A member of the RNA family "Magnesium riboswitch aptamer (Magnesium responsive RNA element)" from Citrobacter koseri, 115 nucleotides long. For this family Rfam cites "Regulation of magnesium homeostasis in Salmonella: Mg(2+) targets the mgtA transcript for degradation by RNase E" (Spinelli et al., FEMS Microbiol Lett, 2008). The base pairs follow the family's consensus structure, which is taken from published work. Rfam describes the family as follows. The Magnesium sensor RNA element is a cis-regulatory element that regulates the expression of the magnesium transporter protein MgtA. It is located in the 5' UTR of this gene. The element adopts different structures depending on the presence or absence of Mg2+, this has the affect of regulating whether transcription reads through the mgtA coding region or stops within the 5' UTR. NCBI's taxonomy places the organism under Bacteria, Pseudomonadati, Pseudomonadota, Gammaproteobacteria, Citrobacter koseri.
[Rfam]
RNA sequence: CUUACCGGAGGCUGCAUGGAUCCCGAACCCACCCCUCUCCCGCGAUGGAGAAAUAGCCCUUUCCGGUAAGCCUGUUUUUCACUGUCUUACCGGAUACGUAAGGCAGUGACGUUCC
Numbered sequence: 001c002u003u004a005c006c007g008g009a010g011g012c013u014g015c016a017u018g019g020a021u022c023c024c025g026a027a028c029c030c031a032c033c034c035c036u037c038u039c040c041c042g043c044g045a046u047g048g049a050g051a052a053a054u055a056g057c058c059c060u061u062u063c064c065g066g067u068a069a070g071c072c073u074g075u076u077u078u079u080c081a082c083u084g085u086c087u088u089a090c091c092g093g094a095u096a097c098g099u100a101a102g103g104c105a106g107u108g109a110c111g112u113u114c115c
Stems, first nucleotide, its partner, number of pairs: 001070011017031003036051005081107010